Rfam assigns this 99-nucleotide RNA from Leifsonia poae to the family "ZMP/ZTP riboswitch aptamer (pfl RNA motif)". Lineage of the source: Bacteria > Actinomycetes > Micrococcales > Microbacteriaceae > Leifsonia. The match comes from Rfam's covariance-model search (40 bits). Its family is annotated with regulation of purine nucleotide biosynthetic process and one-carbon metabolic process in the Gene Ontology.
RNA sequence: UGCGAUCGUCGCGACUGGCGCUCAAAUGGUCACCAUUGGGAAGCGACACGGAGCCUUGAUCAGAUCGGGUGGAUUCGGCCGCGCGCCUGGGUCGAUACG
Numbered sequence: 001u002g003c004g005a006u007c008g009u010c011g012c013g014a015c016u017g018g019c020g021c022u023c024a025a026a027u028g029g030u031c032a033c034c035a036u037u038g039g040g041a042a043g044c045g046a047c048a049c050g051g052a053g054c055c056u057u058g059a060u061c062a063g064a065u066c067g068g069g070u071g072g073a074u075u076c077g078g079c080c081g082c083g084c085g086c087c088u089g090g091g092u093c094g095a096u097a098c099g
Base pairs, nucleotide, nucleotide: 008047009046010045011044012043015040016039017087018086019085020084021083026036027035028034029033076094077093078092079091080090